Shown here is a 49-nucleotide sequence from Prosthecobacter dejongeii, a member of the family "Guanidine-II riboswitch aptamer (mini-ykkC)". The match comes from Rfam's covariance-model search (49 bits). The source organism's lineage runs through Bacteria, Pseudomonadati, Verrucomicrobiota, Verrucomicrobiales and Prosthecobacter. Its family is annotated with regulation of gene expression in the Gene Ontology.
RNA sequence: ACGCGAGGACGACCUCGCAGCUCCAUUUUUCACAGCAGGGACGACCCUG
Numbered sequence: 001a002c003g004c005g006a007g008g009a010c011g012a013c014c015u016c017g018c019a020g021c022u023c024c025a026u027u028u029u030u031c032a033c034a035g036c037a038g039g040g041a042c043g044a045c046c047c048u049g
Stems, first nucleotide, its partner, number of pairs: 003018006036049005